Shown here is a 73-nucleotide RNA sequence from Jannaschia sp. CCS1, a member of the family "L2-Alphaproteobacteria ribosomal protein leader". It is annotated as a cis-regulatory leader. The source organism's lineage runs through Bacteria, Pseudomonadati, Pseudomonadota, Rhodobacterales and Jannaschia.
RNA sequence: GGGCACCUACGGGGGCCUUUAACAUCCGGUCGCGCGAAACAUGCGGGGCCGUCAAGCAAACGGAAGACAGUGA
Numbered sequence: 001g002g003g004c005a006c007c008u009a010c011g012g013g014g015g016c017c018u019u020u021a022a023c024a025u026c027c028g029g030u031c032g033c034g035c036g037a038a039a040c041a042u043g044c045g046g047g048g049c050c051g052u053c054a055a056g057c058a059a060a061c062g063g064a065a066g067a068c069a070g071u072g073a
Base pairs, nucleotide, nucleotide: 001018002017003016004015006014007013008012027051028050029049030048031047033045034044035043036042